A member of the RNA family "COG3860 RNA" from Rhodomicrobium vannielii, 54 nucleotides long. The base pairs follow the family's consensus structure, which is taken from published work.
[Rfam]
RNA sequence: CGGUCGGCAGUUCACCGAGGCGUCGCUGUUCCCUUUGGGAAGCUAAACCUGCCC
Numbered sequence: 001c002g003g004u005c006g007g008c009a010g011u012u013c014a015c016c017g018a019g020g021c022g023u024c025g026c027u028g029u030u031c032c033c034u035u036u037g038g039g040a041a042g043c044u045a046a047a048c049c050u051g052c053c054c
Base pairs, nucleotide, nucleotide: 001017002016003015004014029040030039031038032037
Background
By type it is a cis-regulatory element.